[Rfam]
RNA sequence: GGUCAUGAGUGCCAGCGACAAGCCCCGGCUCGCUGGCCGGCAACCCUCCACUGCGGUGGGGUGCCCCGGGUGAAGACCAGGCCUUAACCACACGGUUAAGUGCAAGCGCAGGUC
Dot-bracket structure: ((((....(.((((((....((......)).)))))))(((..(((.((.....))..))).))).........))))..(((((((((....))))))).))...........
Shown here is a 114-nucleotide RNA sequence from Arthrobacter terrae, a member of the family "SAM (S-adenosyl methionine) riboswitch aptamer". Its Rfam clan is "SAM clan". Gene Ontology terms of the family: S-adenosylmethionine metabolic process and regulation of gene expression. A reference for the family is Weinberg et al. (2008), "The aptamer core of SAM-IV riboswitches mimics the ligand-binding site of SAM-I riboswitches", RNA.